[Rfam]
RNA sequence: CCACAGAACUAAGUACUAGUGCCGCAGGUGAUUGGUACAUUGAAUAUUCCCCUGCAGCACGAGUGCUUUACUCUGUGG
Numbered sequence: 001c002c003a004c005a006g007a008a009c010u011a012a013g014u015a016c017u018a019g020u021g022c023c024g025c026a027g028g029u030g031a032u033u034g035g036u037a038c039a040u041u042g043a044a045u046a047u048u049c050c051c052c053u054g055c056a057g058c059a060c061g062a063g064u065g066c067u068u069u070a071c072u073c074u075g076u077g078g
Base pairs, nucleotide, nucleotide: 001078002077003076004075005074006073007072011068012067013066014065015064016063017062019060024055025054026053027052028051030049